[Rfam]
The family of this 317-nucleotide RNA from Ignicoccus hospitalis is "Archaeal RNase P". From the family's description: Ribonuclease P (RNase P) is a ubiquitous endoribonuclease, found in archaea, bacteria and eukarya as well as chloroplasts and mitochondria. Its best characterised activity is the generation of mature 5'-ends of tRNAs by cleaving the 5'-leader elements of precursor-tRNAs.

RNA sequence: CCGAGGCCGCUGGCGGCCACGGGGCCUCCAAGGCCCUGAGGAAGCUCCACCCUCCCCGCGGCGCCGGGGUCCCGCGAGGGACCGGGUUGAGAGCCCGGGCAACGGCACAGAAACGAGACCCCCCUCGGGGAGUCGUGAAGGGGAGGGCCCCCGGCGACGGGCGGCCCUACCCGGAGCGGUGAGCCGACGGGCGGGCUGAAACGGCCGCCCCCCGGGGAGCAAGGCCGUUGGGACCCGAGGAGGGCCGCGCGAGGGUCCCGGAGGGCCGCUCAGCCAAAUGCCGCCGCAGUACAGAAGGUGGGCUAUAGCGGCCUCGG
Numbered sequence: 001c002c003g004a005g006g007c008c009g010c011u012g013g014c015g016g017c018c019a020c021g022g023g024g025c026c027u028c029c030a031a032g033g034c035c036c037u038g039a040g041g042a043a044g045c046u047c048c049a050c051c052c053u054c055c056c057c058g059c060g061g062c063g064c065c066g067g068g069g070u071c072c073c074g075c076g077a078g079g080g081a082c083c084g085g086g087u088u089g090a091g092a093g094c095c096c097g098g099g100c101a102a103c104g105g106c107a108c109a110g111a112a113a114c115g116a117g118a119c120c121c122c123c124c125u126c127g128g129g130g131a132g133u134c135g136u137g138a139a140g141g142g143g144a145g146g147g148c149c150c151c152c153g154g155c156g157a158c159g160g161g162c163g164g165c166c167c168u169a170c171c172c173g174g175a176g177c178g179g180u181g182a183g184c185c186g187a188c189g190g191g192c193g194g195g196c197u198g199a200a201a202c203g204g205c206c207g208c209c210c211c212c213c214g215g216g217g218a219g220c221a222a223g224g225c226c227g228u229u230g231g232g233a234c235c236c237g238a239g240g241a242g243g244g245c246c247g248c249g250c251g252a253g254g255g256u257c258c259c260g261g262a263g264g265g266c267c268g269c270u271c272a273g274c275c276a277a278a279u280g281c282c283g284c285c286g287c288a289g290u291a292c293a294g295a296a297g298g299u300g301g302g303c304u305a306u307a308g309c310g311g312c313c314u315c316g317g
Stems, first nucleotide, its partner, number of pairs: 001317003005313007012285006020038007043304003047301005052219004057249005064215005069082005083097005098210002103207004119195003122190002125187004140151004223267004232257005
Source information
The family is grouped with related families in Rfam's "RNaseP clan". The match comes from Rfam's covariance-model search (136 bits). Rfam links the family to the GO terms multimeric ribonuclease P complex, ribonuclease P activity and tRNA processing.